Shown here is a 355-nucleotide RNA from Sulfobacillus sp. hq2, a member of the family "Bacterial RNase P class A". A search with the family's covariance model found it, with a score of 326 bits. The family's consensus secondary structure is taken from published work. Its family is annotated with ribonuclease P activity, dimeric ribonuclease P complex and tRNA processing in the Gene Ontology. The family's RNA type in Rfam is ribozyme.
[Rfam]
RNA sequence: CGAGCCGAUAUGAUGACCGCGGGUGCCAGGCCGAAAGGCGGCAUCUGAGGAAAGUCCGAGCUGCAUAGAGCAGGGUGCUGGAUAACGUCCAGUGGGGGCGACCCUAAGGAAAGUGCCACAGAAAACAAACCGCCUAAAGCGUCGCUUUAGGUAAGGAUGAAACGGUGCGGUAAGAGCGCACCAGAGGCCAGGUGACUGGUCUGCUUGGUAAACCCCACCCGCAGCAAGACCGAAUAGGGGCAGGAUGAAGUUGCUCGCUGAGCUGCCCGGGUAGGUCGCUUGAGGCGACAGGUAACUGUCGUCCCAGAUAAAUGGUCAUCCACGACAGAACUCGGCUUAUAAGUUGACUCGCAUA
Numbered sequence: 001c002g003a004g005c006c007g008a009u010a011u012g013a014u015g016a017c018c019g020c021g022g023g024u025g026c027c028a029g030g031c032c033g034a035a036a037g038g039c040g041g042c043a044u045c046u047g048a049g050g051a052a053a054g055u056c057c058g059a060g061c062u063g064c065a066u067a068g069a070g071c072a073g074g075g076u077g078c079u080g081g082a083u084a085a086c087g088u089c090c091a092g093u094g095g096g097g098g099c100g101a102c103c104c105u106a107a108g109g110a111a112a113g114u115g116c117c118a119c120a121g122a123a124a125a126c127a128a129a130c131c132g133c134c135u136a137a138a139g140c141g142u143c144g145c146u147u148u149a150g151g152u153a154a155g156g157a158u159g160a161a162a163c164g165g166u167g168c169g170g171u172a173a174g175a176g177c178g179c180a181c182c183a184g185a186g187g188c189c190a191g192g193u194g195a196c197u198g199g200u201c202u203g204c205u206u207g208g209u210a211a212a213c214c215c216c217a218c219c220c221g222c223a224g225c226a227a228g229a230c231c232g233a234a235u236a237g238g239g240g241c242a243g244g245a246u247g248a249a250g251u252u253g254c255u256c257g258c259u260g261a262g263c264u265g266c267c268c269g270g271g272u273a274g275g276u277c278g279c280u281u282g283a284g285g286c287g288a289c290a291g292g293u294a295a296c297u298g299u300c301g302u303c304c305c306a307g308a309u310a311a312a313u314g315g316u317c318a319u320c321c322a323c324g325a326c327a328g329a330a331c332u333c334g335g336c337u338u339a340u341a342a343g344u345u346g347a348c349u350c351g352c353a354u355a
Base pairs, nucleotide, nucleotide: 001351002350003349004348006346007345008344009343012320013319014318015317016316017315018314020047021046022045023044024043025042026041027040052338053337054336056335057334058333059332060331061224062223063222064221068256069255070254071253073220074219075218076217077216078092079091080090081089082088093107094105095104096103097102108215109214113213114212115209116208117207130156131155132152133151134150135149136148137147138146139145140144164182165181166180167179168178169177184204185202186201187200188199189198190197191196228277229276230275231274238268239267240266241265242264243263249259250258251257284303285302286301287300288299289298290297291296